[Rfam]
RNA sequence: UAAUUUAGGUAAUCGCUGCAACGCUUGACGUUGUAGAGGAAAGUCCAUGCUCACACGGCUCUGAGAUGACCGUAGUGUUCGUGCUCGGCGAAAGAAUAAGCCGUGGCUUCGCGCUUGCGCGUAGACGGCGGGAAUAAGUCCUAAGUUUGAGAAGGUUUACCUUGUUGAAUAUGGAUUAGGUUCCCUGAACAGUGCCACAGUGACGUAGUCGGCUCGGAAACGGGUCGAAUGGAACGCGGUAAACCCCACGAGUGAGAAACCCAAAUUAUGGUAGGGGCAUUCUUCUGAAGGAAAUGAACUGAUGAAGGAACAGACGCUUGUCUGUAGAUAGAUGAUUACCACCCUAAGUACGAGGCGUAAGCCGUUUGAGUACUCGGGAACAAAACAUGGCUUAUCGAA
Numbered sequence: 001u002a003a004u005u006u007a008g009g010u011a012a013u014c015g016c017u018g019c020a021a022c023g024c025u026u027g028a029c030g031u032u033g034u035a036g037a038g039g040a041a042a043g044u045c046c047a048u049g050c051u052c053a054c055a056c057g058g059c060u061c062u063g064a065g066a067u068g069a070c071c072g073u074a075g076u077g078u079u080c081g082u083g084c085u086c087g088g089c090g091a092a093a094g095a096a097u098a099a100g101c102c103g104u105g106g107c108u109u110c111g112c113g114c115u116u117g118c119g120c121g122u123a124g125a126c127g128g129c130g131g132g133a134a135u136a137a138g139u140c141c142u143a144a145g146u147u148u149g150a151g152a153a154g155g156u157u158u159a160c161c162u163u164g165u166u167g168a169a170u171a172u173g174g175a176u177u178a179g180g181u182u183c184c185c186u187g188a189a190c191a192g193u194g195c196c197a198c199a200g201u202g203a204c205g206u207a208g209u210c211g212g213c214u215c216g217g218a219a220a221c222g223g224g225u226c227g228a229a230u231g232g233a234a235c236g237c238g239g240u241a242a243a244c245c246c247c248a249c250g251a252g253u254g255a256g257a258a259a260c261c262c263a264a265a266u267u268a269u270g271g272u273a274g275g276g277g278c279a280u281u282c283u284u285c286u287g288a289a290g291g292a293a294a295u296g297a298a299c300u301g302a303u304g305a306a307g308g309a310a311c312a313g314a315c316g317c318u319u320g321u322c323u324g325u326a327g328a329u330a331g332a333u334g335a336u337u338a339c340c341a342c343c344c345u346a347a348g349u350a351c352g353a354g355g356c357g358u359a360a361g362c363c364g365u366u367u368g369a370g371u372a373c374u375c376g377g378g379a380a381c382a383a384a385a386c387a388u389g390g391c392u393u394a395u396c397g398a399a
Stems, first nucleotide, its partner, number of pairs: 004399003007395001008340007016036006041393003045390005050256005055073004060069002079251005084105001086103004106126001107124002110121003127246002130185004138176004145170006192244002194240003209228008260276003280309006310325006343378003347374005
Bacterial RNase P class B: a 399-nucleotide sequence from Sporosarcina limicola. By type it is a ribozyme. Lineage of the source: Bacteria > Bacillota > Bacilli > Caryophanales > Sporosarcina.